[Rfam]
Nucleotides: 063
Stems, first nucleotide, its partner, number of pairs: 004060021
Number, partner (000 for none) and nucleotide at each position: 001000u002000u003000g004060u005059u006058u007057u008056u009055u010054u011053a012052g013051g014050u015049u016048u017047u018046g019045a020044u021043u022042u023041u024040u025000g026000u027000g028000a029000a030000a031000u032000g033000u034000c035000g036000a037000u038000g039000a040024g041023a042022a043021a044020a045019u046018c047017a048016a049015a050014a051013c052012c053011u054010a055009a056008a057007g058006a059005a060004a061000a062000u063000a